[Rfam]
RNA sequence: CAGAGUCUUCGGGGCAGGGUGAGAAAUUGCUUAUGCAUUUUCAAUUCCCGAUCGGCGGUAUAGCCCGCGACCUACUGUAUCAGGAUUUUAUCCCGCUACAUUGGUGGACCUGGGGAAGUUCCAGGGCCGACGGUAUAGUCCGGAUGGGAGAAGACAUUA
Number, nucleotide and partner (000 for none) at each position: 001c000002a000003g157004a000005g155006u154007c153008u152009u151010c150011g000012g000013g000014g000015c000016a000017g049018g048019g047020u000021g000022a000023g000024a000025a000026a000027u000028u000029g000030c000031u000032u000033a000034u000035g000036c000037a000038u000039u000040u000041u000042c000043a000044a000045u000046u000047c019048c018049c017050g000051a139052u138053c129054g128055g068056c067057g066058g065059u000060a000061u000062a000063g127064c126065c058066c057067g056068c055069g000070a000071c000072c104073u103074a000075c000076u000077g000078u000079a000080u000081c000082a000083g000084g000085a000086u000087u000088u000089u000090a000091u000092c000093c000094c000095g000096c000097u000098a000099c000100a000101u000102u000103g073104g072105u000106g000107g000108a000109c125110c124111u123112g122113g121114g000115g000116a000117a000118g000119u000120u000121c113122c112123a111124g110125g109126g064127c063128c054129g053130a000131c142132g141133g140134u000135a000136u000137a000138g052139u051140c133141c132142g131143g000144a000145u000146g000147g000148g000149a000150g010151a009152a008153g007154a006155c005156a000157u003158u000159a000